[Rfam]
RNA sequence: CAUGUCUAAGUACAAACAGUUUUAAUGUGAACCGCAUAAGGCUCAGUAUACAGCUAUAAUUACAAGAUCAUUUACCUAGUUACUUGGAUAACUGUGGAAAAUCUAGAGCUAAUACAUGCAAAAUGCAGGGACCUCGCGGAACCUGUGCAAUUAUUAGUCAAUCCAAUCGUCCUCCGUGACGCUUGAGUUGAAAUCUGGAUAAUUUUGUUGAUCGCAUGGUCUCGCACCGGCGACAGAUCUUUCAAAUAUCUGCCCUAUCAACUAUUGAUGGUAGUAUAGAGGACUACCAUGGUUGCAACGGGUAACGGGGAAUCAGGGUUCGAUUCCGGAGAGGGAGCCUGAGAAAUGGCUACCACAUCCAAGGAAGGCAGCAGGCGCGUAAAUUACCCAAUCCCGGCACGGGGAGGUAGUGACGAGAAAUAACAAUAUAAGACUCUUUUAUGAUGUUUUAUAAUUGGAAUGAACCGAGCAUAAAUCCUUCGGUAAGGAUCAAGUGGAGGGCAAGUCUGGUGCCAGCAGCCGCGGUAAUUCCAGCUCCACUAGCGUAUAUUAAAAUUGUUG
Numbered sequence: 001c002a003u004g005u006c007u008a009a010g011u012a013c014a015a016a017c018a019g020u021u022u023u024a025a026u027g028u029g030a031a032c033c034g035c036a037u038a039a040g041g042c043u044c045a046g047u048a049u050a051c052a053g054c055u056a057u058a059a060u061u062a063c064a065a066g067a068u069c070a071u072u073u074a075c076c077u078a079g080u081u082a083c084u085u086g087g088a089u090a091a092c093u094g095u096g097g098a099a100a101a102u103c104u105a106g107a108g109c110u111a112a113u114a115c116a117u118g119c120a121a122a123a124u125g126c127a128g129g130g131a132c133c134u135c136g137c138g139g140a141a142c143c144u145g146u147g148c149a150a151u152u153a154u155u156a157g158u159c160a161a162u163c164c165a166a167u168c169g170u171c172c173u174c175c176g177u178g179a180c181g182c183u184u185g186a187g188u189u190g191a192a193a194u195c196u197g198g199a200u201a202a203u204u205u206u207g208u209u210g211a212u213c214g215c216a217u218g219g220u221c222u223c224g225c226a227c228c229g230g231c232g233a234c235a236g237a238u239c240u241u242u243c244a245a246a247u248a249u250c251u252g253c254c255c256u257a258u259c260a261a262c263u264a265u266u267g268a269u270g271g272u273a274g275u276a277u278a279g280a281g282g283a284c285u286a287c288c289a290u291g292g293u294u295g296c297a298a299c300g301g302g303u304a305a306c307g308g309g310g311a312a313u314c315a316g317g318g319u320u321c322g323a324u325u326c327c328g329g330a331g332a333g334g335g336a337g338c339c340u341g342a343g344a345a346a347u348g349g350c351u352a353c354c355a356c357a358u359c360c361a362a363g364g365a366a367g368g369c370a371g372c373a374g375g376c377g378c379g380u381a382a383a384u385u386a387c388c389c390a391a392u393c394c395c396g397g398c399a400c401g402g403g404g405a406g407g408u409a410g411u412g413a414c415g416a417g418a419a420a421u422a423a424c425a426a427u428a429u430a431a432g433a434c435u436c437u438u439u440u441a442u443g444a445u446g447u448u449u450u451a452u453a454a455u456u457g458g459a460a461u462g463a464a465c466c467g468a469g470c471a472u473a474a475a476u477c478c479u480u481c482g483g484u485a486a487g488g489a490u491c492a493a494g495u496g497g498a499g500g501g502c503a504a505g506u507c508u509g510g511u512g513c514c515a516g517c518a519g520c521c522g523c524g525g526u527a528a529u530u531c532c533a534g535c536u537c538c539a540c541u542a543g544c545g546u547a548u549a550u551u552a553a554a555a556u557u558g559u560u561g
Stems, first nucleotide, its partner, number of pairs: 001371001004035002010032002017027002042331003051252003055248003060245002064241006085116002092108002095105003254302003261293003268290008306328004310321004333354002336351003356367001358365002384409001386408003392404005464484006494540006507534004516523002
Rfam assigns this 561-nucleotide part of an RNA from Culex quinquefasciatus to the family "Microsporidia small subunit ribosomal RNA". The family has 46 seed sequences and 1,035 matches in Rfam 15.1. The organism belongs to Culex pipiens complex, within Eukaryota. A search with the family's covariance model found it, with a score of 680 bits. Gene Ontology terms of the family: structural constituent of ribosome and ribosome. On this family, see Yusupov et al., Science 2001: "Crystal structure of the ribosome at 5.5 A resolution".